[Rfam]
RNA sequence: UUGCAUUCCUAGAUGCUCUUGGCAGUUUCCCUCCAAGGUGCUUCCGGGCUGAGUGAAUGUUUGAGAACUGGCAGCGGAGUCCAAAGGGCUGCACGUCUCCUGUGGUCCCGUCUCUUUCAUACCUGUAGCGUAU
Number, nucleotide and partner (000 for none) at each position: 001u000002u000003g060004c059005a058006u057007u000008c053009c000010u051011a050012g000013a000014u000015g000016c000017u000018c048019u047020u046021g045022g044023c000024a042025g041026u040027u000028u000029c000030c000031c000032u000033c000034c000035a000036a000037g000038g000039u000040g026041c025042u024043u000044c022045c021046g020047g019048g018049c000050u011051g010052a000053g008054u000055g000056a000057a006058u005059g004060u003061u000062u000063g000064a133065g000066a131067a000068c000069u128070g000071g126072c125073a124074g123075c000076g000077g000078a000079g000080u000081c000082c000083a000084a000085a000086g113087g112088g111089c110090u000091g108092c000093a106094c105095g000096u000097c102098u000099c000100c000101u000102g097103u000104g000105g094106u093107c000108c091109c000110g089111u088112c087113u086114c000115u000116u000117u000118c000119a000120u000121a000122c000123c074124u073125g072126u071127a000128g069129c000130g000131u066132a000133u064
The record is a 133-nucleotide RNA sequence from Jaculus jaculus, which matches "Small nucleolar RNA SNORA14" in Rfam.
The organism belongs to Jaculus, within Eukaryota.
From the family's description: ACA14 is a member of the H/ACA class of snoRNA that guide the sites of modification of uridines to pseudouridines.
It is annotated as an H/ACA-box small nucleolar RNA.
Pairs were carried over by alignment from the consensus structure, which was predicted with RNAfold.
The family has 18 seed sequences and 848 matches in Rfam 15.1.